Annotation: FMN riboswitch aptamer (RFN element): a 115-nucleotide sequence from Dethiosulfatibacter aminovorans.
RNA sequence: UAGAAUCUUCGGGGCAGGGUGUGAUUCCCUACCGGCGGUAAAGUCCGCGAACCUUAUGGUUGAAUCGGUGCAAUUCCGAUACCGACAGUUAAAGUCUGGAUGAUAGGAGAUUAGU
Numbered sequence: 001u002a003g004a005a006u007c008u009u010c011g012g013g014g015c016a017g018g019g020u021g022u023g024a025u026u027c028c029c030u031a032c033c034g035g036c037g038g039u040a041a042a043g044u045c046c047g048c049g050a051a052c053c054u055u056a057u058g059g060u061u062g063a064a065u066c067g068g069u070g071c072a073a074u075u076c077c078g079a080u081a082c083c084g085a086c087a088g089u090u091a092a093a094g095u096c097u098g099g100a101u102g103a104u105a106g107g108a109g110a111u112u113a114g115u
Stems, first nucleotide, its partner, number of pairs: 004112007017029003031095002033084002035048004043082002051060003064080005086098003
The match comes from Rfam's covariance-model search (114 bits). On this family, see Serganov et al., Nature 2009: "Coenzyme recognition and gene regulation by a flavin mononucleotide riboswitch". Taxonomically the source falls in Dethiosulfatibacter aminovorans (Bacteria, Bacillati, Bacillota, Tissierellia). The base pairs follow the family's consensus structure, which is taken from published work.